[Rfam]
Nucleotides: 067
Base pairs, nucleotide, nucleotide: 002066003065004064005063006062010058011057012056013055014054015053016052017051018050019049022046025043026042027041028040029039030038
Number, partner (000 for none) and nucleotide at each position: 001000u002066u003065a004064g005063u006062u007000c008000c009000u010058g011057u012056a013055a014054a015053c016052a017051u018050c019049c020000u021000a022046c023000a024000c025043u026042c027041a028040g029039c030038u031000a032000u033000a034000a035000c036000a037000a038030g039029g040028c041027u042026g043025g044000a045000g046022g047000g048000u049019g050018g051017a052016u053015g054014u055013u056012u057011a058010c059000u060000u061000c062006a063005a064004c065003u066002g067000a